The record is a 274-nucleotide sequence from Pseudomonas panipatensis, which matches "rne-II RNA" in Rfam.
RNA sequence: AAACGUGCAGGGUGGAGACGCACAACUGUCGGAUCGCGUAGCUUCUGCAGCCCUGAUCCAAGACGCACUUCAAUCGUCCGCCUCUGACAGUUGAUUCCUCCUCCUGUGAUUGCUUGUUAGAUCAUGACAAGCAGGAGACGUAGUCGCGACACGGCCUAUCGAUAGCCGAGCGUCGCUGGACACGGGAAUGGUCCGCCGUUCCUGAGUACGCGCCUGAGCACCGACCAUGAGAGUCGUGGGUGCCGAUUGCCGUUUCCGGUAGCCCCGGAAACCA
Numbered sequence: 001a002a003a004c005g006u007g008c009a010g011g012g013u014g015g016a017g018a019c020g021c022a023c024a025a026c027u028g029u030c031g032g033a034u035c036g037c038g039u040a041g042c043u044u045c046u047g048c049a050g051c052c053c054u055g056a057u058c059c060a061a062g063a064c065g066c067a068c069u070u071c072a073a074u075c076g077u078c079c080g081c082c083u084c085u086g087a088c089a090g091u092u093g094a095u096u097c098c099u100c101c102u103c104c105u106g107u108g109a110u111u112g113c114u115u116g117u118u119a120g121a122u123c124a125u126g127a128c129a130a131g132c133a134g135g136a137g138a139c140g141u142a143g144u145c146g147c148g149a150c151a152c153g154g155c156c157u158a159u160c161g162a163u164a165g166c167c168g169a170g171c172g173u174c175g176c177u178g179g180a181c182a183c184g185g186g187a188a189u190g191g192u193c194c195g196c197c198g199u200u201c202c203u204g205a206g207u208a209c210g211c212g213c214c215u216g217a218g219c220a221c222c223g224a225c226c227a228u229g230a231g232a233g234u235c236g237u238g239g240g241u242g243c244c245g246a247u248u249g250c251c252g253u254u255u256c257c258g259g260u261a262g263c264c265c266c267g268g269a270a271a272c273c274a
Base pairs, nucleotide, nucleotide: 014101015100016099017098023093024092025091026090027089028088029087030086031085032084036081037080038079040054041053062078063077064076065075102136103135104134105133106132139210140209141208142207143181144180145179146176147175148174149173152168153167154166155165157164158163185202186201187200188199189198190197191196218241219240221238222236223235224234225233252272253271254270255269256268257267258266
It is annotated as a cis-regulatory element.
Pairs were carried over by alignment from the consensus structure, which is taken from published work.
A search with the family's covariance model found it, with a score of 207 bits.